Record summary:
The family of this 159-nucleotide sequence from Paenibacillus sp. 7541 is "c-di-AMP riboswitch aptamer (ydaO/yuaA leader)".

[Rfam]
RNA sequence: AAAAUAAGACAGCCGAAUUUCGACCAGAAAAUGGGGGAACCAUGUAAUUGGGGUGAAUUUCCUAAGUCAUUCAUGAUUCAUCAUGAAUGAGGAGGAAUAGGGCAACCUGUGAAAGCCCGAACCCGUCAGCUAACCUCGUAGGCUGCAGCACAGGAACCA
Numbered sequence: 001a002a003a004a005u006a007a008g009a010c011a012g013c014c015g016a017a018u019u020u021c022g023a024c025c026a027g028a029a030a031a032u033g034g035g036g037g038a039a040c041c042a043u044g045u046a047a048u049u050g051g052g053g054u055g056a057a058u059u060u061c062c063u064a065a066g067u068c069a070u071u072c073a074u075g076a077u078u079c080a081u082c083a084u085g086a087a088u089g090a091g092g093a094g095g096a097a098u099a100g101g102g103c104a105a106c107c108u109g110u111g112a113a114a115g116c117c118c119g120a121a122c123c124c125g126u127c128a129g130c131u132a133a134c135c136u137c138g139u140a141g142g143c144u145g146c147a148g149c150a151c152a153g154g155a156a157c158c159a
Stems, first nucleotide, its partner, number of pairs: 011144004018030003031139006041050002051124003059097004100118004
The organism belongs to Paenibacillus, within Bacteria.